A member of the RNA family "SAM riboswitch aptamer (S box leader)" from Gracilibacillus kekensis, 105 nucleotides long.
The match comes from Rfam's covariance-model search (91 bits).
Rfam describes the family as follows. The SAM riboswitch is found upstream of a number of genes which code for proteins involved in methionine or cysteine biosynthesis in Gram-positive bacteria.
RNA sequence: CUCUUAUGUAGAGUGGUGGAGGGACUGGCCCAAUGAAACCCGGCAACCUUAAGCAAAUGCUUAAAAGGUGCUAAAUCCUGCAAACAAUUGUUUGAAAAAUAAGAG
Numbered sequence: 001c002u003c004u005u006a007u008g009u010a011g012a013g014u015g016g017u018g019g020a021g022g023g024a025c026u027g028g029c030c031c032a033a034u035g036a037a038a039c040c041c042g043g044c045a046a047c048c049u050u051a052a053g054c055a056a057a058u059g060c061u062u063a064a065a066a067g068g069u070g071c072u073a074a075a076u077c078c079u080g081c082a083a084a085c086a087a088u089u090g091u092u093u094g095a096a097a098a099a100u101a102a103g104a105g
Base pairs, nucleotide, nucleotide: 001105002104003103004102005101006100007099013041015040016039017038021031022030023029025080027078028077042072043071044070045069047068048067049064050063051062052061076097081094082093083092084091085090